[Rfam]
RNA sequence: GUGAUACUCAAACUAUGGGGGCAGUUUUUGUUCUGGAGUAAAGUGCCACCAGGUUUUGAGCGUGCC
Number, nucleotide and partner (000 for none) at each position: 001g000002u000003g000004a063005u062006a000007c060008u059009c058010a057011a056012a055013c000014u000015a000016u051017g050018g049019g000020g047021g046022c045023a044024g000025u042026u041027u040028u000029u000030g000031u000032u000033c000034u000035g000036g000037a000038g000039u000040a027041a026042a025043g000044u023045g022046c021047c020048a000049c018050c017051a016052g000053g000054u000055u012056u011057u010058g009059a008060g007061c000062g005063u004064g000065c000066c000
This 66-nucleotide RNA sequence from Cricetulus griseus belongs to the Rfam family "mir-290 microRNA precursor family". It scores 51 bits against the family's covariance model. The base pairs follow the family's consensus structure, which was predicted with RNAalifold. Taxonomically the source falls in Cricetulus (Eukaryota, Bilateria, Muroidea, Cricetinae). On this family, see Houbaviy et al., Dev Cell 2003: "Embryonic stem cell-specific MicroRNAs". Its family is annotated with RISC complex and miRNA-mediated post-transcriptional gene silencing in the Gene Ontology.